[Rfam]
RNA sequence: CCGUGCUAAGCGGGAAGGUAGCGGUGUCCUGUACUCGCAAUCCGCUAUAGCGAGGCCGAAUUCCCACCCAAGGUGGGGCGGUUUCAAGGUCUGCCUUGAGGGAUUGGUGUUGACACCCGGGUCCCGCACAAUGGGAACCCGUAAACCCUGUCAGGUCCGGAAGGAAGCAGCAGUAAGCGGUCAUUCCCGUGUGUUGCGGGACAGCCCGGGUCGAGCCAUGAACUCAAGUAACGCUUGGGGCCGCCUCAUCGACGGUGGGUGCACGG
Dot-bracket structure: ((((((...((((((.(.(...).).))))...(((((...........)))))))......((((((...(((((..((((((((((...((..(((((...(.(((......((((((((((((((((.(((((..((((.....((((....(((....)))....))))...))))....)))))))...))))))...))))))))...)))..)..))))).))...))))))))))..)))))...)))))).))))))

Notes: Shown here is a 266-nucleotide sequence from Pontibacillus chungwhensis, a member of the family "Bacterial large signal recognition particle RNA". The family's RNA type in Rfam is non-coding RNA gene. The organism belongs to Pontibacillus chungwhensis, within Bacteria. For this family Rfam cites "Kinship in the SRP RNA family" (Rosenblad et al., RNA Biol, 2009). The signal recognition particle (SRP) is a universally conserved ribonucleoprotein involved in the co-translational targeting of proteins to membranes.